The record is a 266-nucleotide part of an RNA from Ignisphaera aggregans, which matches "Archaeal large subunit ribosomal RNA" in Rfam. The organism belongs to Ignisphaera aggregans, within Archaea.
RNA sequence: GAGUUCACAGCCGUGGCGAGGCUAAGGGGUUUAACCCCGAAGCCGUAGGGAAACCGACAAGCCCGCAACCGGUUUAACCGGUGAGGGGCGGGGUCUGAAAGGGCCUGGAGUCACGGCUGUGAGACCAGAAACCGGGCGAUCUAGGCGGGGGCAGGGUGAAGCCGGGGGUUUCCCCGGUGGAGGCCCGAAGGGGUGCUGACGUGCAAUUCGCUCCCAUGACCUCCGCCUAGGGGCGAAAGACCAAUCUAGCCCGGUGAUAGCUGGUU
Numbered sequence: 001g002a003g004u005u006c007a008c009a010g011c012c013g014u015g016g017c018g019a020g021g022c023u024a025a026g027g028g029g030u031u032u033a034a035c036c037c038c039g040a041a042g043c044c045g046u047a048g049g050g051a052a053a054c055c056g057a058c059a060a061g062c063c064c065g066c067a068a069c070c071g072g073u074u075u076a077a078c079c080g081g082u083g084a085g086g087g088g089c090g091g092g093g094u095c096u097g098a099a100a101g102g103g104c105c106u107g108g109a110g111u112c113a114c115g116g117c118u119g120u121g122a123g124a125c126c127a128g129a130a131a132c133c134g135g136g137c138g139a140u141c142u143a144g145g146c147g148g149g150g151g152c153a154g155g156g157u158g159a160a161g162c163c164g165g166g167g168g169u170u171u172c173c174c175c176g177g178u179g180g181a182g183g184c185c186c187g188a189a190g191g192g193g194u195g196c197u198g199a200c201g202u203g204c205a206a207u208u209c210g211c212u213c214c215c216a217u218g219a220c221c222u223c224c225g226c227c228u229a230g231g232g233g234c235g236a237a238a239g240a241c242c243a244a245u246c247u248a249g250c251c252c253g254g255u256g257a258u259a260g261c262u263g264g265u266u
Base pairs, nucleotide, nucleotide: 005122006121007120008119009118010117011116012115013114014113015112016111017110020044021043022042023041026038027037028036029035048055049054061089062088063087064086068082069081070080071079092105093104094103095102125264126263128261132254133253134252135251136250137249141230142229143228144227145226146225147224148223149222150221151220152218154186155185156184157183161178162177163176164175165174166173167172190215191214192213193212195211196210198209199208232242233241